[Rfam]
RNA sequence: CUGCAGGUUAGGUUACAGUGUGGCUUGUGCAGUGUCGCACUGUCGUUCCCCCUGCAAACAAUAACCUGUUUCAUUCUAUCCCUGUCUGUCUGAAUCCCCCAGCAGGCAGGGACGCUUGGUCACAAACAU
Numbered sequence: 001c002u003g004c005a006g007g008u009u010a011g012g013u014u015a016c017a018g019u020g021u022g023g024c025u026u027g028u029g030c031a032g033u034g035u036c037g038c039a040c041u042g043u044c045g046u047u048c049c050c051c052c053u054g055c056a057a058a059c060a061a062u063a064a065c066c067u068g069u070u071u072c073a074u075u076c077u078a079u080c081c082c083u084g085u086c087u088g089u090c091u092g093a094a095u096c097c098c099c100c101a102g103c104a105g106g107c108a109g110g111g112a113c114g115c116u117u118g119g120u121c122a123c124a125a126a127c128a129u
Stems, first nucleotide, its partner, number of pairs: 003055005015043010081110004086105004
RNA: Small nucleolar RNA SNORA63
Organism: Myripristis murdjan